[Rfam]
The record is a 71-nucleotide RNA sequence from Paraglaciecola mesophila, which matches "RNA-OUT" in Rfam. Transposition of insertion sequence IS10 is regulated by an anti-sense RNA which inhibits transposase expression when IS10 is present in multiple copies per cell. The anti-sense RNA (RNA-OUT) consists of a stem domain topped by a flexibly paired loop; the 5' end of the target molecule, RNA-IN, is complementary to the top of the loop, and complementarity extends for 35 base-pairs down one side of RNA-OUT. This bacterial RNA is also found in the genomic sequence of eukaryotic organisms. This is probably due to vector contamination. It scores 42 bits against the family's covariance model. Rfam 15.1 lists 102 matches to the family in 57 species. Lineage of the source: Bacteria > Alteromonadales > Alteromonadaceae > Paraglaciecola > Paraglaciecola mesophila. On this family, see Kittle et al., J Mol Biol 1989: "Insertion sequence IS10 anti-sense pairing initiates by an interaction between the 5' end of the target RNA and a loop in the anti-sense RNA".
RNA sequence: UCACGCAUGGUGUUGUUAUCUAGUUGGUUUUUGGCGAAAUUUAUUAGAUCAAAUAGCGCCAUGCGUGUCUA
Numbered sequence: 001u002c003a004c005g006c007a008u009g010g011u012g013u014u015g016u017u018a019u020c021u022a023g024u025u026g027g028u029u030u031u032u033g034g035c036g037a038a039a040u041u042u043a044u045u046a047g048a049u050c051a052a053a054u055a056g057c058g059c060c061a062u063g064c065g066u067g068u069c070u071a
Base pairs, nucleotide, nucleotide: 003066004065005064006063007062008061009060010059011058012057013056014055015054016053035047037045038044